Bacterial RNase P class A: a 384-nucleotide RNA from Streptomonospora litoralis. Gene Ontology terms of the family: dimeric ribonuclease P complex, ribonuclease P activity and tRNA processing. For this family Rfam cites "The Ribonuclease P Database" (Brown, Nucleic Acids Res, 1999). The family's RNA type in Rfam is ribozyme. The family's consensus secondary structure is taken from published work. From the family's description: Ribonuclease P (RNase P) is a ubiquitous endoribonuclease, found in archaea, bacteria and eukarya as well as chloroplasts and mitochondria.

[Rfam]
RNA sequence: AGAGUCGGCCAGGCGGCCGCGGCACCGUGUUGCGGUGUCGAGGAAAGUCCGGACUCCACAGGGCAGGGUGGUCGGUAACACCGACCCGGGGCGACCCGCGGGAAAGUGCCACAGAAAACAGACCGCCACCGCCGCGCGGUGGUAAGGGUGAAACGGUGGUGUAAGAGACCACCAGCGGCCGGAGCGAUCCGGUCGGCUCGGUAAACCCCACCCGGAGCAAGGUCAAAAAAGGGGACCGCGGUCCCCUGCGCGAACGUUCGAGGGCGGCCCGCCUGAAGUUCGCGGGUAGACCGCACCGAGGCUGUCGGCAACGGCAGCCCCAGAUGGAUGGCCGCCCGGUCCGCUACGGACCGACGAAAUCCGGCUUACCGGCCGACUCUUCCC
Numbered sequence: 001a002g003a004g005u006c007g008g009c010c011a012g013g014c015g016g017c018c019g020c021g022g023c024a025c026c027g028u029g030u031u032g033c034g035g036u037g038u039c040g041a042g043g044a045a046a047g048u049c050c051g052g053a054c055u056c057c058a059c060a061g062g063g064c065a066g067g068g069u070g071g072u073c074g075g076u077a078a079c080a081c082c083g084a085c086c087c088g089g090g091g092c093g094a095c096c097c098g099c100g101g102g103a104a105a106g107u108g109c110c111a112c113a114g115a116a117a118a119c120a121g122a123c124c125g126c127c128a129c130c131g132c133c134g135c136g137c138g139g140u141g142g143u144a145a146g147g148g149u150g151a152a153a154c155g156g157u158g159g160u161g162u163a164a165g166a167g168a169c170c171a172c173c174a175g176c177g178g179c180c181g182g183a184g185c186g187a188u189c190c191g192g193u194c195g196g197c198u199c200g201g202u203a204a205a206c207c208c209c210a211c212c213c214g215g216a217g218c219a220a221g222g223u224c225a226a227a228a229a230a231g232g233g234g235a236c237c238g239c240g241g242u243c244c245c246c247u248g249c250g251c252g253a254a255c256g257u258u259c260g261a262g263g264g265c266g267g268c269c270c271g272c273c274u275g276a277a278g279u280u281c282g283c284g285g286g287u288a289g290a291c292c293g294c295a296c297c298g299a300g301g302c303u304g305u306c307g308g309c310a311a312c313g314g315c316a317g318c319c320c321c322a323g324a325u326g327g328a329u330g331g332c333c334g335c336c337c338g339g340u341c342c343g344c345u346a347c348g349g350a351c352c353g354a355c356g357a358a359a360u361c362c363g364g365c366u367u368a369c370c371g372g373c374c375g376a377c378u379c380u381u382c383c384c
Stems, first nucleotide, its partner, number of pairs: 001380010012336007020040009045367003049364005054217004061270004066213005071085005086100001087098004101208002106206002108202003123147002125143008155173006175197001176195008221292004231283001233281004262274004300319008